[Rfam]
Nucleotides: 158
Base pairs, nucleotide, nucleotide: 004155005154006153007152008151009150010149017029018028019027033100034099035049036048037047038046044098045097053075054074080096081095082094083093084092102141103140104139
Number, partner (000 for none) and nucleotide at each position: 001000a002000g003000u004155c005154u006153g007152u008151u009150u010149c011000a012000g013000g014000g015000c016000g017029g018028g019027g020000u021000g022000a023000g024000a025000u026000u027019c028018c029017c030000c031000a032000c033100c034099g035049g036048c037047g038046g039000u040000g041000a042000a043000a044098g045097c046038c047037c048036g049035c050000g051000a052000c053075c054074g055000g056000u057000a058000u059000a060000u061000g062000c063000g064000c065000a066000g067000c068000a069000u070000g071000u072000a073000c074054c075053g076000c077000u078000g079000a080096u081095u082094u083093g084092g085000u086000g087000a088000a089000a090000u091000u092084c093083c094082a095081a096080a097045g098044c099034c100033g101000a102141c103140g104139g105000u106000g107000u108000g109000c110000g111000u112000g113000c114000c115000g116000u117000g118000u119000u120000u121000u122000u123000g124000c125000g126000c127000g128000g129000u130000g131000u132000g133000u134000c135000g136000a137000g138000u139104c140103c141102g142000g143000a144000u145000g146000a147000a148000a149010g150009a151008a152007a153006c154005g155004g156000c157000g158000g